[Rfam]
RNA sequence: UAUAAAAGUCACUAAUCACACACACGUAUCGACACGUAACUCGGGGUGCUGUUUUUAACUUGUUAAAGAUGGUCGAGUUUAUGGGGUACGUGGAAGCUUAAC
Number, nucleotide and partner (000 for none) at each position: 001u000002a000003u000004a000005a000006a000007a000008g000009u000010c000011a000012c000013u000014a000015a000016u000017c000018a000019c000020a000021c000022a000023c092024a091025c090026g089027u088028a087029u086030c085031g000032a000033c000034a000035c083036g082037u081038a080039a079040c077041u076042c075043g074044g000045g000046g000047u000048g073049c072050u071051g070052u069053u068054u067055u066056u000057a000058a000059c000060u000061u000062g000063u000064u000065a000066a055067a054068g053069a052070u051071g050072g049073u048074c043075g042076a041077g040078u000079u039080u038081a037082u036083g035084g000085g030086g029087u028088a027089c026090g025091u024092g023093g000094a000095a000096g000097c000098u000099u000100a000101a000102c000
RNA: t44 RNA
Organism: Psychromonas sp. CNPT3